Shown here is a 199-nucleotide RNA from Erwinia tasmaniensis, a member of the family "GlmZ RNA activator of glmS mRNA". The family is grouped with related families in Rfam's "Glm clan". This RNA was discovered in E. coli during a large scale screen. On this family, see Argaman et al., Curr Biol 2001: "Novel small RNA-encoding genes in the intergenic regions of Escherichia coli". Pairs were carried over by alignment from the consensus structure, which is taken from published work. By type it is a small RNA.
[Rfam]
RNA sequence: GUAGAUGCUCAUUCCACCUCUUAUGUUUGCGCAAGCUUCAUAAACCUGGGAAUGAUGCAGAGCCAUUUACGGUACCUGUUGCCCAACCCGCCAAUAUCGUUCAGGCCUUAUUGGAUCUCGGGCACACCGUUGAGUCGGGUACCAAUCGGUUGUCUUACCGACCUGAUAUUUAUACCUGCCGACCGGCAGGUUUUUUUUU
Dot-bracket structure: ((...(((((((..(.(.(.......(.......)......)......)).)))).)))..)).......(((((((...((((........((((............)))).......)))).............)))))))........(((.....))).........(.(((((((....))))))).)......